RNA sequence: ACUCCCGAAACCUUAAUCCACACACGCAUCGGCACGAUCUGUCGGGUGCCCGCCCUCGAAGAAGAUUCGGUUCGGGUUUCAGAUCGGGAUGCGUGGAGGCUCAAC
Dot-bracket structure: ......................((((((((....(((((((......(((((....................)))))..))))))).))))))))..........
RNA: t44 RNA
Organism: Thioalkalivibrio versutus